[Rfam]
RNA sequence: AUUAAUAAUAGGGGUCGAGCACCCCACAAAUUAAU
Numbered sequence: 001a002u003u004a005a006u007a008a009u010a011g012g013g014g015u016c017g018a019g020c021a022c023c024c025c026a027c028a029a030a031u032u033a034a035u
Stems, first nucleotide, its partner, number of pairs: 001035006011025005
RNA: S16-Flavobacteria ribosomal protein leader